[Rfam]
RNA sequence: AGCGAUAGAUUUGAACUUAUGAAGGCAGGUGCAUAAACCAGCAGCAAUUCUAUGAAUUGUGGGAUCCUUCGUUCAGAAUGUCGCUUUUUU
Dot-bracket structure: (((((((...((((....((((((((.(((......))).))..((((.......)))).......))))))))))..))))))).....
A member of the RNA family "DUF3800-VII RNA", 90 nucleotides long. It is annotated as a small RNA. The family's consensus secondary structure is taken from published work.